small nucleolar RNA snoR127: a 190-nucleotide sequence from Carpinus fangiana. Pairs were carried over by alignment from the consensus structure, which was predicted with RNAalifold. It is annotated as a C/D-box small nucleolar RNA. A reference for the family is Chen and Wu (2009), "Mining small RNA sequencing data: a new approach to identify small nucleolar RNAs in Arabidopsis", Nucleic Acids Res. Rfam links the family to the GO terms RNA processing and nucleolus.

RNA sequence: CUGGAAUGAUGUAGCUUAGCCAAAUCAGUCAUUGAUGUGCUCCAUAAGGGAUUUUCUUCAAAGCUUGUACCUCUUGUUGUAGAGGCACAAUGUGUCUCUUACACACACUUGAUCAAGCUUUAGAUGAUAUGCCUUCUGUAGAAGUGCAUCGUAAUGACGUCAACAUAGAGUUUGGUUGUUCCUGACCAGA
Numbered sequence: 001c002u003g004g005a006a007u008g009a010u011g012u013a014g015c016u017u018a019g020c021c022a023a024a025u026c027a028g029u030c031a032u033u034g035a036u037g038u039g040c041u042c043c044a045u046a047a048g049g050g051a052u053u054u055u056c057u058u059c060a061a062a063g064c065u066u067g068u069a070c071c072u073c074u075u076g077u078u079g080u081a082g083a084g085g086c087a088c089a090a091u092g093u094g095u096c097u098c099u100u101a102c103a104c105a106c107a108c109u110u111g112a113u114c115a116a117g118c119u120u121u122a123g124a125u126g127a128u129a130u131g132c133c134u135u136c137u138g139u140a141g142a143a144g145u146g147c148a149u150c151g152u153a154a155u156g157a158c159g160u161c162a163a164c165a166u167a168g169a170g171u172u173u174g175g176u177u178g179u180u181c182c183u184g185a186c187c188a189g190a
Base pairs, nucleotide, nucleotide: 001189002188003187004186